[Rfam]
RNA sequence: GGUCCCUGGUCUAGUGGUUAGGACAUUAGACUCUGAAUCUAGUAACCCGAGUUCAAAUCUCGGUGGGACCU
Dot-bracket structure: ((((((..((((........)))).(((((.......)))))....(((((.......))))).)))))).

tRNA: a 71-nucleotide RNA sequence from Acer saccharum. Pairs were carried over by alignment from the consensus structure, which is taken from published work. It scores 53 bits against the family's covariance model. Gene Ontology term of the family: triplet codon-amino acid adaptor activity. Rfam's curators write: Transfer RNA (tRNA) molecules are approximately 80 nucleotides in length.